[Rfam]
RNA: U4atac minor spliceosomal RNA
Organism: Prolemur simus
RNA sequence: ACCGUCCUUUUCCUGGGGUUGUGCUACUGUCCAAUGAGCGGGCAGUGAGGGCAGCACUGCCAACUCCUGCACAGCACGCUCACAUCAGCUAGAGCUUUGCUUUACCUUGGUGCAGUUUUUGGAAAA
Numbered sequence: 001a002c003c004g005u006c007c008u009u010u011u012c013c014u015g016g017g018g019u020u021g022u023g024c025u026a027c028u029g030u031c032c033a034a035u036g037a038g039c040g041g042g043c044a045g046u047g048a049g050g051g052c053a054g055c056a057c058u059g060c061c062a063a064c065u066c067c068u069g070c071a072c073a074g075c076a077c078g079c080u081c082a083c084a085u086c087a088g089c090u091a092g093a094g095c096u097u098u099g100c101u102u103u104a105c106c107u108u109g110g111u112g113c114a115g116u117u118u119u120u121g122g123a124a125a126a
Base pairs, nucleotide, nucleotide: 006018007017008016009015021060022059023058027054028053029052030051031050032049038046039045083112084111085110086109087108090104091103092102093101094100095099
Dot-bracket structure: .....((((.....))))..(((...((((((.....((.....))..))))))...)))......................(((((..((((((...))))))...)))))..............